Rfam assigns this 134-nucleotide sequence from Yersinia pestis to the family "isrN Hfq binding RNA". Pairs were carried over by alignment from the consensus structure, which was predicted with WAR. Rfam classes the family as a small RNA. The source organism's lineage runs through Bacteria, Pseudomonadati, Yersiniaceae, Yersinia pseudotuberculosis complex and Yersinia pestis subsp. pestis bv. Orientalis.

RNA sequence: CUACAAGCCUUAAAACGGAAACCAAGACCAUAAACUUCUGUUUGGGUCAUUUUAACAAAUGAUCUCGUUGGAGCCGUAGGAUCGCAAAUUGCGCGGUCAGGUAAUUGACGAGCUCACGCUUUAUCGCUGGUUUU
Numbered sequence: 001c002u003a004c005a006a007g008c009c010u011u012a013a014a015a016c017g018g019a020a021a022c023c024a025a026g027a028c029c030a031u032a033a034a035c036u037u038c039u040g041u042u043u044g045g046g047u048c049a050u051u052u053u054a055a056c057a058a059a060u061g062a063u064c065u066c067g068u069u070g071g072a073g074c075c076g077u078a079g080g081a082u083c084g085c086a087a088a089u090u091g092c093g094c095g096g097u098c099a100g101g102u103a104a105u106u107g108a109c110g111a112g113c114u115c116a117c118g119c120u121u122u123a124u125c126g127c128u129g130g131u132u133u134u
Stems, first nucleotide, its partner, number of pairs: 021102003026097001040068001042067001044065003050059003071094001073092002107132003111128003